[Rfam]
RNA sequence: GCCUCCAUAGCUCAGGGGAUAGAGCAUCGGUUUCCUAAACCGUGUGUCGUAGGUUCGAAUCCUACUGGGGGCA
Numbered sequence: 001g002c003c004u005c006c007a008u009a010g011c012u013c014a015g016g017g018g019a020u021a022g023a024g025c026a027u028c029g030g031u032u033u034c035c036u037a038a039a040c041c042g043u044g045u046g047u048c049g050u051a052g053g054u055u056c057g058a059a060u061c062c063u064a065c066u067g068g069g070g071g072c073a
Stems, first nucleotide, its partner, number of pairs: 001072007010025004028042004049065005